A member of the RNA family "Group II catalytic intron D1-D4-7" from Parashewanella curva, 134 nucleotides long. From the family's description: Group II introns are found in rRNA, tRNA and mRNA of organelles in fungi, plants and protists, and also in mRNA in bacteria. Gene Ontology term of the family: Group II intron splicing. The family has 244 seed sequences and 1,296 matches in Rfam 15.1. On this family, see Lehmann and Schmidt, Crit Rev Biochem Mol Biol 2003: "Group II introns: structure and catalytic versatility of large natural ribozymes".
RNA sequence: CCUGAUAUACGACUAUCAGUAGCCUAGGGAUAGUGCAGAAUUGGUAACGAUUUUGUGCGAAGCUUCCUGACAAUGUACCUGCAUACAAACCGUGAGGGGCGUAUGACGUCCUCUAGCAAUAAGAGGGCACAGGG
Dot-bracket structure: .((((((......)))))).......((((..(((((((((((....)))))))))))......))))..............((((...((....))...))))....((((((.......)))))).......